[Rfam]
RNA sequence: GGUCGGUGAUGUCCAUUGUUCAAGACGGGACUGACAAGUGUUUGAUUACAAACGAACCUACUGAGACC
Numbered sequence: 001g002g003u004c005g006g007u008g009a010u011g012u013c014c015a016u017u018g019u020u021c022a023a024g025a026c027g028g029g030a031c032u033g034a035c036a037a038g039u040g041u042u043u044g045a046u047u048a049c050a051a052a053c054g055a056a057c058c059u060a061c062u063g064a065g066a067c068c
Stems, first nucleotide, its partner, number of pairs: 001068004
Small nucleolar RNA sn668: a 68-nucleotide sequence from Pristionchus pacificus. The organism belongs to Pristionchus, within Eukaryota. The base pairs follow the family's consensus structure, which was predicted with WAR. Gene Ontology terms of the family: RNA processing and nucleolus.